[Rfam]
RNA sequence: GAAAUAGCUUUAGGGCUAGCCUUUGACUAAAGAUUUUAGGAGGUAGAGCACUGAAUGGUCUAGGGCGGUUAACCGUACCGAAACCUAUCAAACUCCGAAUGCCAAAAAAUCAGGUCAAGGAGUCAGACUUAGAGGGAUAAGCUUCUAAGUCGAAAGGGAAACAGCCCAGACCGACAGCUAAGGUCCCCAAAUCUGGAUUAAGUGGAAAAGGAUGUGAACCUACUAAGACAACCAGGACGUUGGCUUAGAAGCAGCCAUGCAUUUAAAGAAUGCGUAAUAGCUCACUGGUCAAGUGGGUUUGCGCCGAAAAUGAACGGGGCUAAAAUCCAGUACCGAAGCUUCGG
Numbered sequence: 001g002a003a004a005u006a007g008c009u010u011u012a013g014g015g016c017u018a019g020c021c022u023u024u025g026a027c028u029a030a031a032g033a034u035u036u037u038a039g040g041a042g043g044u045a046g047a048g049c050a051c052u053g054a055a056u057g058g059u060c061u062a063g064g065g066c067g068g069u070u071a072a073c074c075g076u077a078c079c080g081a082a083a084c085c086u087a088u089c090a091a092a093c094u095c096c097g098a099a100u101g102c103c104a105a106a107a108a109a110u111c112a113g114g115u116c117a118a119g120g121a122g123u124c125a126g127a128c129u130u131a132g133a134g135g136g137a138u139a140a141g142c143u144u145c146u147a148a149g150u151c152g153a154a155a156g157g158g159a160a161a162c163a164g165c166c167c168a169g170a171c172c173g174a175c176a177g178c179u180a181a182g183g184u185c186c187c188c189a190a191a192u193c194u195g196g197a198u199u200a201a202g203u204g205g206a207a208a209a210g211g212a213u214g215u216g217a218a219c220c221u222a223c224u225a226a227g228a229c230a231a232c233c234a235g236g237a238c239g240u241u242g243g244c245u246u247a248g249a250a251g252c253a254g255c256c257a258u259g260c261a262u263u264u265a266a267a268g269a270a271u272g273c274g275u276a277a278u279a280g281c282u283c284a285c286u287g288g289u290c291a292a293g294u295g296g297g298u299u300u301g302c303g304c305c306g307a308a309a310a311u312g313a314a315c316g317g318g319g320c321u322a323a324a325a326u327c328c329a330g331u332a333c334c335g336a337a338g339c340u341u342c343g344g
Stems, first nucleotide, its partner, number of pairs: 005018005020122001021120007032110001034108004039103002046096001047094002052090003057085003063079002065076004126151010156167003171344004176340003182334003191331001193330006210305002214302010231289005237262001239260001242256003263267001268283001272281002

Rfam assigns this 344-nucleotide part of an RNA from Anaerococcus lactolyticus to the family "Bacterial large subunit ribosomal RNA".
Its family is annotated with ribosome and structural constituent of ribosome in the Gene Ontology.
Lineage of the source: Bacteria > Bacillati > Tissierellia > Tissierellales > Anaerococcus lactolyticus.